[Rfam]
RNA sequence: GGAUAACACUUUUUGUUAUUUUUGGCCAACAACACAAUGAUAUGUGGAAUAACUUUUUCACGUAUCAUUGUGUUAUUGACCGGAAAUAGCAAAACAAUAUUAUCC
Numbered sequence: 001g002g003a004u005a006a007c008a009c010u011u012u013u014u015g016u017u018a019u020u021u022u023u024g025g026c027c028a029a030c031a032a033c034a035c036a037a038u039g040a041u042a043u044g045u046g047g048a049a050u051a052a053c054u055u056u057u058u059c060a061c062g063u064a065u066c067a068u069u070g071u072g073u074u075a076u077u078g079a080c081c082g083g084a085a086a087u088a089g090c091a092a093a094a095c096a097a098u099a100u101u102a103u104c105c
Stems, first nucleotide, its partner, number of pairs: 002104004011094009021084005027078003031074019
This 105-nucleotide sequence from Prunus dulcis belongs to the Rfam family "MIR6274 microRNA precursor family". Lineage of the source: Eukaryota > Viridiplantae > Streptophyta > rosids > Prunus. The family has 2 seed sequences and 342 matches in Rfam 15.1. A search with the family's covariance model found it, with a score of 90 bits.